[Rfam]
RNA sequence: UCACAACUGUGUUUUAUGGCUUUCUAUUCCUAUGUGAUUCUUUUAAUAUGUCAUGUAGGGUUCAAAGCCAUUAGAUACGGAGUGGA
Dot-bracket structure: .(....((((((((.((((((((..(.((((((((((.............)))))))))).).)))))))).))))))))....).

The family of this 86-nucleotide RNA sequence from Silurus meridionalis is "mir-135 microRNA precursor family". The family has 88 seed sequences and 2,125 matches in Rfam 15.1. The family's consensus secondary structure was predicted with PFOLD. NCBI's taxonomy places the organism under Eukaryota, Craniata, Teleostomi, Osteoglossocephalai, Silurus.